[Rfam]
A member of the RNA family "glmS glucosamine-6-phosphate activated ribozyme aptamer" from Paludifilum halophilum, 167 nucleotides long. Pairs were carried over by alignment from the consensus structure, which is taken from published work. NCBI's taxonomy places the organism under Bacteria, Bacillota, Bacilli, Thermoactinomycetaceae, Paludifilum. Rfam's curators write: This entry contains a glucosamine-6-phosphate activated ribozyme that is found in the mRNA for GlmS. GlmS is an enzyme that uses fructose-6-phosphate and glutamine to generate glucosamine-6-phosphate. The ribozyme catalyses self cleavage of the glmS mRNA that is thought to regulate GlmS activity. It is annotated as a riboswitch.
RNA sequence: UCGUGUUGUAAAGCGCCAGGACUGUGGCUCGGGCUUGGGCCGCAGUUGACGAGGUGGAGGACGAUCGAGUCUUCGGCGGAUACCUCCCGGCUCGGCACCGGAGCCGACGAGCCGAAACACAAAGGAGCGGGGCGACCUGUUCUACAAAAGUUUCGGUGCGGUGCGUU
Numbered sequence: 001u002c003g004u005g006u007u008g009u010a011a012a013g014c015g016c017c018a019g020g021a022c023u024g025u026g027g028c029u030c031g032g033g034c035u036u037g038g039g040c041c042g043c044a045g046u047u048g049a050c051g052a053g054g055u056g057g058a059g060g061a062c063g064a065u066c067g068a069g070u071c072u073u074c075g076g077c078g079g080a081u082a083c084c085u086c087c088c089g090g091c092u093c094g095g096c097a098c099c100g101g102a103g104c105c106g107a108c109g110a111g112c113c114g115a116a117a118c119a120c121a122a123a124g125g126a127g128c129g130g131g132g133c134g135a136c137c138u139g140u141u142c143u144a145c146a147a148a149a150g151u152u153u154c155g156g157u158g159c160g161g162u163g164c165g166u167u
Stems, first nucleotide, its partner, number of pairs: 020047008029038001056087005065076004088106006111157007125142007